[Rfam]
RNA sequence: AUUGCUUCUCGGCCUUUUGGCUAAGAUCAAGUGUAGCAUCUGUUCUUAUCAGUUUAAUAUAUGAUACGUCCUCCAUCCGGGGACAAUAUACUAAAUGGAUUUUGGGAGCAGGGAGAUGAAAUAGGAGCUUGCUCUGUCCACUCCACCUGGUAUUGCAGUACCUCCAGGAACAGUGCACCCCCC
Numbered sequence: 001a002u003u004g005c006u007u008c009u010c011g012g013c014c015u016u017u018u019g020g021c022u023a024a025g026a027u028c029a030a031g032u033g034u035a036g037c038a039u040c041u042g043u044u045c046u047u048a049u050c051a052g053u054u055u056a057a058u059a060u061a062u063g064a065u066a067c068g069u070c071c072u073c074c075a076u077c078c079g080g081g082g083a084c085a086a087u088a089u090a091c092u093a094a095a096u097g098g099a100u101u102u103u104g105g106g107a108g109c110a111g112g113g114a115g116a117u118g119a120a121a122u123a124g125g126a127g128c129u130u131g132c133u134c135u136g137u138c139c140a141c142u143c144c145a146c147c148u149g150g151u152a153u154u155g156c157a158g159u160a161c162c163u164c165c166a167g168g169a170a171c172a173g174u175g176c177a178c179c180c181c182c183c
Base pairs, nucleotide, nucleotide: 007026008025009024011022012021013020014019047066048065049064050063051062068084069083070082071081072080073079112144113143114142115141118138119137124135125134126133127132146168147167148166149165150164
Record summary
A member of the RNA family "U2 spliceosomal RNA" from Spermophilus dauricus, 183 nucleotides long. The base pairs follow the family's consensus structure, which is taken from published work. Its family is annotated with mRNA branch site recognition, pre-mRNA branch point binding and U2 snRNP in the Gene Ontology. Rfam's curators write: U2 is a small nuclear RNA (snRNA) component of the spliceosome (involved in pre-mRNA splicing). Complementary binding between U2 snRNA (in an area lying towards the 5' end but 3' to hairpin I) and the branchpoint sequence (BPS) of the intron results the bulging out of an unpaired adenosine, on the BPS, which initiates a nucleophilic attack at the intronic 5' splice site, thus starting the first of two transesterification reactions that mediate splicing. The family's RNA type in Rfam is spliceosomal small nuclear RNA.